RNA sequence: AUGAGCGCAGAGGGAGAGAACGCGUGGUAGCACGUGUCGCCGAAGGAGCAAGGAUGACCUUACAAUCUCUCAGGCAAAAGGACCUCUGCAGGACG
Numbered sequence: 001a002u003g004a005g006c007g008c009a010g011a012g013g014g015a016g017a018g019a020a021c022g023c024g025u026g027g028u029a030g031c032a033c034g035u036g037u038c039g040c041c042g043a044a045g046g047a048g049c050a051a052g053g054a055u056g057a058c059c060u061u062a063c064a065a066u067c068u069c070u071c072a073g074g075c076a077a078a079a080g081g082a083c084c085u086c087u088g089c090a091g092g093a094c095g
Stems, first nucleotide, its partner, number of pairs: 007089007020037004039075003042071002046069003053061001

Record summary:
A member of the RNA family "Glycine riboswitch aptamer" from Aneurinibacillus soli, 95 nucleotides long. Rfam links the family to the GO term glycine biosynthetic process. Taxonomically the source falls in Aneurinibacillus (Bacteria, Bacillati, Bacilli, Paenibacillaceae). Pairs were carried over by alignment from the consensus structure.